[Rfam]
RNA sequence: CGUACCGCCACGGGAGAGACCGCCCCUUUCGCGUUUUCUUAAUGCGAAGCGUCGGCGCCGAAGGAGCAACCACCCCGGAAACUCUCAGGCAAAAGGACCGUGGACGGCUA
Number, nucleotide and partner (000 for none) at each position: 001c000002g000003u000004a000005c000006c000007g000008c103009c102010a101011c100012g099013g098014g000015a000016g000017a000018g000019a000020c055021c054022g053023c000024c000025c000026c000027u000028u000029u000030c000031g000032c000033g000034u000035u000036u000037u000038c000039u000040u000041a000042a000043u000044g000045c000046g000047a000048a000049g000050c000051g000052u000053c022054g021055g020056c000057g090058c089059c088060g086061a085062a000063g000064g084065a083066g082067c000068a000069a000070c078071c077072a000073c000074c000075c000076c000077g071078g070079a000080a000081a000082c066083u065084c064085u061086c060087a000088g059089g058090c057091a000092a000093a000094a000095g000096g000097a000098c013099c012100g011101u010102g009103g008104a000105c000106g000107g000108c000109u000110a000
RNA: Glycine riboswitch aptamer
Organism: Varunaivibrio sulfuroxidans